The family of this 85-nucleotide RNA sequence from Tissierella sp. P1 is "c-di-GMP-I-GGC riboswitch aptamer". Rfam 15.1 lists 1,298 matches to the family in 717 species. Taxonomically the source falls in Tissierella (Bacteria, Bacillati, Tissierellia, Tissierellaceae). The literature on the family includes a 2017 paper in Proc Natl Acad Sci U S A by Weinberg et al., "Bioinformatic analysis of riboswitch structures uncovers variant classes with altered ligand specificity". Pairs were carried over by alignment from the consensus structure, which is taken from published work.
[Rfam]
RNA sequence: CAUAAUAAAGGCAAACCCACCGAAAGGUGGGGACGCAAAGCUUGAAGUCUAAUACCAUAUGGUAAUGAUUGUUCAGCUGCUAUGU
Numbered sequence: 001c002a003u004a005a006u007a008a009a010g011g012c013a014a015a016c017c018c019a020c021c022g023a024a025a026g027g028u029g030g031g032g033a034c035g036c037a038a039a040g041c042u043u044g045a046a047g048u049c050u051a052a053u054a055c056c057a058u059a060u061g062g063u064a065a066u067g068a069u070u071g072u073u074c075a076g077c078u079g080c081u082a083u084g085u
Base pairs, nucleotide, nucleotide: 003082004081011036012035016031017030018029019028020027021026034071039078040077041076042075044074045073046072047069048068049067